[Rfam]
RNA sequence: CUUAUGGGACGACCCAUAAGCGCGUCUUUAUUCCGGGGACGGCCCCA
Numbered sequence: 001c002u003u004a005u006g007g008g009a010c011g012a013c014c015c016a017u018a019a020g021c022g023c024g025u026c027u028u029u030a031u032u033c034c035g036g037g038g039a040c041g042g043c044c045c046c047a
Stems, first nucleotide, its partner, number of pairs: 001020008035046004
Rfam assigns this 47-nucleotide RNA from Buttiauxella agrestis to the family "Guanidine-II riboswitch aptamer (mini-ykkC)". The source organism's lineage runs through Bacteria, Pseudomonadati, Gammaproteobacteria, Enterobacteriaceae and Buttiauxella agrestis. From the family's description: Simpler in structure and has fewer highly conserved nucleotide positions than the ykkC-yxkD leader. Despite this each of its two stem-loop structures directly bind free guanidine. Therefore, mini-ykkC RNA motif represents a distinct class of guanidine-sensing RNAs. Its crystal structure was also determined. A reference for the family is Weinberg et al. (2007), "Identification of 22 candidate structured RNAs in bacteria using the CMfinder comparative genomics pipeline", Nucleic Acids Res. The base pairs follow the family's consensus structure, which is taken from published work. The match comes from Rfam's covariance-model search (46 bits).